RNA sequence: UGGACCGGCGGUGACUGGCGUUGAACGUGGGGAACCACGGGGAAGCCGCUUCGGGAAUUUCAAUGGAUCGCACGCCUGGGUCGGACAC
Numbered sequence: 001u002g003g004a005c006c007g008g009c010g011g012u013g014a015c016u017g018g019c020g021u022u023g024a025a026c027g028u029g030g031g032g033a034a035c036c037a038c039g040g041g042g043a044a045g046c047c048g049c050u051u052c053g054g055g056a057a058u059u060u061c062a063a064u065g066g067a068u069c070g071c072a073c074g075c076c077u078g079g080g081u082c083g084g085a086c087a088c
Stems, first nucleotide, its partner, number of pairs: 007050006015042002017076005027038004066082004